[Rfam]
RNA sequence: CAGCCUGAAAUGAUGACACUAAAUUUCAUGUCUCUUCCCUGACAUUUUUCUCUGGAGAUAGAUUUGCCAUACUGAUCUGAUCAGGCUG
Numbered sequence: 001c002a003g004c005c006u007g008a009a010a011u012g013a014u015g016a017c018a019c020u021a022a023a024u025u026u027c028a029u030g031u032c033u034c035u036u037c038c039c040u041g042a043c044a045u046u047u048u049u050c051u052c053u054g055g056a057g058a059u060a061g062a063u064u065u066g067c068c069a070u071a072c073u074g075a076u077c078u079g080a081u082c083a084g085g086c087u088g
Stems, first nucleotide, its partner, number of pairs: 001088005
RNA: Small nucleolar RNA SNORD111